This 95-nucleotide RNA belongs to the Rfam family "PhotoRC-II RNA". The base pairs follow the family's consensus structure, which is taken from published work.

RNA sequence: UAACAUUGUCUUCCUGCCGUUUGACCGAGACUAGGCAGGGUUACCAAUCCGUCUCUCAUAUUUCCGCUAAGGGUGCGGGGAGCAUAGUAUCUCCA
Numbered sequence: 001u002a003a004c005a006u007u008g009u010c011u012u013c014c015u016g017c018c019g020u021u022u023g024a025c026c027g028a029g030a031c032u033a034g035g036c037a038g039g040g041u042u043a044c045c046a047a048u049c050c051g052u053c054u055c056u057c058a059u060a061u062u063u064c065c066g067c068u069a070a071g072g073g074u075g076c077g078g079g080g081a082g083c084a085u086a087g088u089a090u091c092u093c094c095a
Stems, first nucleotide, its partner, number of pairs: 013039005020034002027055005061081007